[Rfam]
RNA sequence: CCCAUCACUCUCAGUAACAAGGAUUCAUCCUGUUGUUACCACGGAGACCCACAGGAAGUCACUGUUACUGGGCGUGAGGGU
Number, nucleotide and partner (000 for none) at each position: 001c000002c000003c000004a000005u000006c000007a000008c000009u000010c000011u071012c070013a069014g068015u067016a066017a065018c064019a063020a000021g000022g060023a059024u058025u057026c000027a000028u000029c055030c054031u053032g052033u051034u000035g049036u000037u000038a000039c046040c000041a000042c000043g000044g000045a000046g039047a000048c000049c035050c000051a033052c032053a031054g030055g029056a000057a025058g024059u023060c022061a000062c000063u019064g018065u017066u016067a015068c014069u013070g012071g011072g000073c000074g000075u000076g000077a000078g000079g000080g000081u000
The family of this 81-nucleotide RNA sequence from Muraenolepis orangiensis is "mir-459 microRNA precursor family". The family's consensus secondary structure was predicted with RNAalifold. NCBI's taxonomy places the organism under Eukaryota, Craniata, Actinopteri, Gadiformes, Muraenolepis.